[Rfam]
RNA sequence: AUGGAUAUGAUGACUAUUUCCCCAGAUGAUCGAAGCUGAAAUUACUGAGCGCUUUUUAUGUGUUUUCUCCCUUUUAGGGAGAAAAUCCAAGCCAGAUAUUCUGAUCCAU
Numbered sequence: 001a002u003g004g005a006u007a008u009g010a011u012g013a014c015u016a017u018u019u020c021c022c023c024a025g026a027u028g029a030u031c032g033a034a035g036c037u038g039a040a041a042u043u044a045c046u047g048a049g050c051g052c053u054u055u056u057u058a059u060g061u062g063u064u065u066u067c068u069c070c071c072u073u074u075u076a077g078g079g080a081g082a083a084a085a086u087c088c089a090a091g092c093c094a095g096a097u098a099u100u101c102u103g104a105u106c107c108a109u
Stems, first nucleotide, its partner, number of pairs: 001109005
Shown here is a 109-nucleotide RNA from Nicotiana sylvestris, a member of the family "Small nucleolar RNA Z103". The organism belongs to Nicotiana, within Eukaryota. The family's consensus secondary structure was predicted with PFOLD. A search with the family's covariance model found it, with a score of 83 bits. Its family is annotated with nucleolus and RNA processing in the Gene Ontology. It is annotated as a C/D-box small nucleolar RNA.